Shown here is a 153-nucleotide sequence from Camphora micrantha, a member of the family "Small nucleolar RNA snoR2/U65".
NCBI's taxonomy places the organism under Eukaryota, Streptophyta, Tracheophyta, Magnoliopsida, Camphora.
A search with the family's covariance model found it, with a score of 117 bits.
A reference for the family is Shaw et al. (1998), "Localization and processing from a polycistronic precursor of novel snoRNAs in maize", J Cell Sci.
Rfam links the family to the GO terms RNA processing and nucleolus.
[Rfam]
RNA sequence: CGCCCGAUGCCACGUUGCUGAUAGCAGCUAUGAACUUGCAAUGACCAGCAAUGCUACGAUUGGGUGUAGAGAAACUAUGUUUCGCAUCUUGAUAGGAACCUGUGGAUUUAUUCUAUUAGUUUAUUCACAGAGCCGAUUUGUGCGACUACAUUG
Numbered sequence: 001c002g003c004c005c006g007a008u009g010c011c012a013c014g015u016u017g018c019u020g021a022u023a024g025c026a027g028c029u030a031u032g033a034a035c036u037u038g039c040a041a042u043g044a045c046c047a048g049c050a051a052u053g054c055u056a057c058g059a060u061u062g063g064g065u066g067u068a069g070a071g072a073a074a075c076u077a078u079g080u081u082u083c084g085c086a087u088c089u090u091g092a093u094a095g096g097a098a099c100c101u102g103u104g105g106a107u108u109u110a111u112u113c114u115a116u117u118a119g120u121u122u123a124u125u126c127a128c129a130g131a132g133c134c135g136a137u138u139u140g141u142g143c144g145a146c147u148a149c150a151u152u153g
Stems, first nucleotide, its partner, number of pairs: 002065007009057001013053006020046001022044001024039003082145005095134002100130003104126004